Rfam assigns this 54-nucleotide sequence from Callithrix jacchus to the family "mir-3193 microRNA precursor family". Its family is annotated with RISC complex and miRNA-mediated post-transcriptional gene silencing in the Gene Ontology.
RNA sequence: UCCUGCGUGGGAUCUGGAGUGGGCGAGUCUCGUUUCCCCAGCUCCAGAGCAGGA
Numbered sequence: 001u002c003c004u005g006c007g008u009g010g011g012a013u014c015u016g017g018a019g020u021g022g023g024c025g026a027g028u029c030u031c032g033u034u035u036c037c038c039c040a041g042c043u044c045c046a047g048a049g050c051a052g053g054a
Base pairs, nucleotide, nucleotide: 001054002053003052004051005050006049008047010045011044012043014041015040016039017036018034019033020032021031022029023028